Notes
Rfam assigns this 102-nucleotide sequence from Paenibacillus apis to the family "Purine riboswitch aptamer". Lineage of the source: Bacteria > Bacillota > Bacilli > Caryophanales > Paenibacillus. Gene Ontology term of the family: purine nucleobase biosynthetic process. The match comes from Rfam's covariance-model search (44 bits).
[Rfam]
RNA sequence: CUAAGCAUAACAAUUUUCAUUCGUAUAACUCUGCCAAAGAUAGGGGCGGGGGUCUCUACAGGAAGCCUAUACUUCCUUACUACGAAUAUCUGAUCGAGAAGC
Numbered sequence: 001c002u003a004a005g006c007a008u009a010a011c012a013a014u015u016u017u018c019a020u021u022c023g024u025a026u027a028a029c030u031c032u033g034c035c036a037a038a039g040a041u042a043g044g045g046g047c048g049g050g051g052g053u054c055u056c057u058a059c060a061g062g063a064a065g066c067c068u069a070u071a072c073u074u075c076c077u078u079a080c081u082a083c084g085a086a087u088a089u090c091u092g093a094u095c096g097a098g099a100a101g102c
Stems, first nucleotide, its partner, number of pairs: 019087007029051007060077006